[Rfam]
The record is a 414-nucleotide RNA from Didymella pomorum, which matches "RNase MRP" in Rfam. A reference for the family is Schmitt et al. (1993), "Secondary structure of RNase MRP RNA as predicted by phylogenetic comparison", FASEB J. Rfam classes the family as a ribozyme.
RNA sequence: UCCUCGCUCAAAGAAUCGCAACGAAGCACACGCACAGAGUGGCCCCGCCAUCUCAGCACGCUUUGGGAGAAAGUCCCCGGACAUCGCUUUCAGCGCACUUUCAGCAACGAUCCGCCAUAGAAGCGCGGCCUCCUACACCACCGGCGCCCUCGCUCGCUUGACGCUUGCACUCUUGGCCCGCGCUUUCCCGAUGCUACGGGUGGAGGAGCUGGCACCAGGGCGAUGAUAUGAGUCCGCCGGCCACCUUGCCCGCCGCCUACGGUCCGCGUCGAGCCAGGAGGAGGAGAGGAAUGUCGAGGCGCCGGGUAGGAGGGUCUUCUCGUCCAGUUUAUGGUUAUGCGAUUGCCCUUGCGCUCUCCGGUAACACGGGGACGUCGCAGGGGUAACUCAAUGGGGCUUAUUCUUGACGCGAGG
Numbered sequence: 001u002c003c004u005c006g007c008u009c010a011a012a013g014a015a016u017c018g019c020a021a022c023g024a025a026g027c028a029c030a031c032g033c034a035c036a037g038a039g040u041g042g043c044c045c046c047g048c049c050a051u052c053u054c055a056g057c058a059c060g061c062u063u064u065g066g067g068a069g070a071a072a073g074u075c076c077c078c079g080g081a082c083a084u085c086g087c088u089u090u091c092a093g094c095g096c097a098c099u100u101u102c103a104g105c106a107a108c109g110a111u112c113c114g115c116c117a118u119a120g121a122a123g124c125g126c127g128g129c130c131u132c133c134u135a136c137a138c139c140a141c142c143g144g145c146g147c148c149c150u151c152g153c154u155c156g157c158u159u160g161a162c163g164c165u166u167g168c169a170c171u172c173u174u175g176g177c178c179c180g181c182g183c184u185u186u187c188c189c190g191a192u193g194c195u196a197c198g199g200g201u202g203g204a205g206g207a208g209c210u211g212g213c214a215c216c217a218g219g220g221c222g223a224u225g226a227u228a229u230g231a232g233u234c235c236g237c238c239g240g241c242c243a244c245c246u247u248g249c250c251c252g253c254c255g256c257c258u259a260c261g262g263u264c265c266g267c268g269u270c271g272a273g274c275c276a277g278g279a280g281g282a283g284g285a286g287a288g289g290a291a292u293g294u295c296g297a298g299g300c301g302c303c304g305g306g307u308a309g310g311a312g313g314g315u316c317u318u319c320u321c322g323u324c325c326a327g328u329u330u331a332u333g334g335u336u337a338u339g340c341g342a343u344u345g346c347c348c349u350u351g352c353g354c355u356c357u358c359c360g361g362u363a364a365c366a367c368g369g370g371g372a373c374g375u376c377g378c379a380g381g382g383g384u385a386a387c388u389c390a391a392u393g394g395g396g397c398u399u400a401u402u403c404u405u406g407a408c409g410c411g412a413g414g
Stems, first nucleotide, its partner, number of pairs: 002414006008407004014344006022065006037054003040050004071399003075396004248316001250314001254313001255307004266302004287292001346383008